The family of this 85-nucleotide RNA from Pseudogracilibacillus auburnensis is "Group II catalytic intron D1-D4-1". Taxonomically the source falls in Pseudogracilibacillus (Bacteria, Bacillati, Bacilli, Caryophanales).
RNA sequence: UAACCGAACAUGUGAAUGUUCGCUGAAUUAUCAGAAGUCAGCAGAAGCCAUAGUACCAGCUGUAUCUAGAACAAUUGGGAAGGGC
Numbered sequence: 001u002a003a004c005c006g007a008a009c010a011u012g013u014g015a016a017u018g019u020u021c022g023c024u025g026a027a028u029u030a031u032c033a034g035a036a037g038u039c040a041g042c043a044g045a046a047g048c049c050a051u052a053g054u055a056c057c058a059g060c061u062g063u064a065u066c067u068a069g070a071a072c073a074a075u076u077g078g079g080a081a082g083g084g085c
Stems, first nucleotide, its partner, number of pairs: 001025002005022007038045002047085003056078004061073001

Group II introns are found in rRNA, tRNA and mRNA of organelles in fungi, plants and protists, and also in mRNA in bacteria.